[Rfam]
RNA sequence: GGAAGAAACGUGAUUGAAUGCAGCGCUGAUGGAAAUUGGGAGAUUUGAAUUGUUUAGUUUACAAUUUACAUCAACGCUGCACUCAAUGACGUGUCUU
Numbered sequence: 001g002g003a004a005g006a007a008a009c010g011u012g013a014u015u016g017a018a019u020g021c022a023g024c025g026c027u028g029a030u031g032g033a034a035a036u037u038g039g040g041a042g043a044u045u046u047g048a049a050u051u052g053u054u055u056a057g058u059u060u061a062c063a064a065u066u067u068a069c070a071u072c073a074a075c076g077c078u079g080c081a082c083u084c085a086a087u088g089a090c091g092u093g094u095c096u097u
Base pairs, nucleotide, nucleotide: 006094008092009091010090011089013087014086015085016084017083019081020080021079022078023077024076025075027073028072030070031069
Shown here is a 97-nucleotide RNA sequence from Momordica charantia, a member of the family "MIR397 microRNA precursor family". NCBI's taxonomy places the organism under Eukaryota, Embryophyta, Mesangiospermae, Cucurbitales, Momordica. Rfam links the family to the GO terms RISC complex and miRNA-mediated post-transcriptional gene silencing. The literature on the family includes a 2009 paper in BMC Genomics by Mica et al., "High throughput approaches reveal splicing of primary microRNA transcripts and tissue specific expression of mature microRNAs in Vitis vinifera".